Description
This 120-nucleotide RNA from Lihuaxuella thermophila belongs to the Rfam family "PyrR binding site". The base pairs follow the family's consensus structure, which is taken from published work. Rfam's curators write: This family represents the PyrR binding site and terminator structure. This RNA structure is found upstream of a variety of genes involved in pyrimidine biosynthesis and transport. The family's RNA type in Rfam is cis-regulatory element.

RNA sequence: UGAACCUUUAAAUCCAGUCCAGAGAGGCUGGCAAGGGCACGGAUCCAUAUAAAUACGGGUGAAGUAUUCCUUCAACCCUCAUGGUGCUUCUUGUCCAGCUCGGGCAAGAAGCUUUUUUAU
Numbered sequence: 001u002g003a004a005c006c007u008u009u010a011a012a013u014c015c016a017g018u019c020c021a022g023a024g025a026g027g028c029u030g031g032c033a034a035g036g037g038c039a040c041g042g043a044u045c046c047a048u049a050u051a052a053a054u055a056c057g058g059g060u061g062a063a064g065u066a067u068u069c070c071u072u073c074a075a076c077c078c079u080c081a082u083g084g085u086g087c088u089u090c091u092u093g094u095c096c097a098g099c100u101c102g103g104g105c106a107a108g109a110a111g112c113u114u115u116u117u118u119a120u
Stems, first nucleotide, its partner, number of pairs: 005036004014031006053082002057078003060074005083115002086112011